RNA sequence: CUGCAGUGAUGAAUUUAGACGUGACUGACCUGGCAUUGCUGGUCUCCGGGUCAGCUCUGGUCAGGAAAUGACUUCAGUUAAUCUUCUCUCUGAGCAG
Numbered sequence: 001c002u003g004c005a006g007u008g009a010u011g012a013a014u015u016u017a018g019a020c021g022u023g024a025c026u027g028a029c030c031u032g033g034c035a036u037u038g039c040u041g042g043u044c045u046c047c048g049g050g051u052c053a054g055c056u057c058u059g060g061u062c063a064g065g066a067a068a069u070g071a072c073u074u075c076a077g078u079u080a081a082u083c084u085u086c087u088c089u090c091u092g093a094g095c096a097g
Stems, first nucleotide, its partner, number of pairs: 003095002038055004
This 97-nucleotide RNA sequence from Kryptolebias marmoratus belongs to the Rfam family "Z30 small nucleolar RNA". The family's consensus secondary structure was predicted with PFOLD.